RNA sequence: GCGGCUAGAAGUUAGACGAAAACCGUCACGUCCUGUGACAACGUUUAACUGACCCACGUGCUGUGUG
Numbered sequence: 001g002c003g004g005c006u007a008g009a010a011g012u013u014a015g016a017c018g019a020a021a022a023c024c025g026u027c028a029c030g031u032c033c034u035g036u037g038a039c040a041a042c043g044u045u046u047a048a049c050u051g052a053c054c055c056a057c058g059u060g061c062u063g064u065g066u067g
Base pairs, nucleotide, nucleotide: 011049012048013047014046015045016044017043025039026038027037028036029035053067055065056064057063

Shown here is a 67-nucleotide RNA from Paraliobacillus ryukyuensis, a member of the family "Bacillaceae-1 RNA". It scores 50 bits against the family's covariance model. Taxonomically the source falls in Paraliobacillus (Bacteria, Bacillati, Bacilli, Caryophanales). By type it is a small RNA.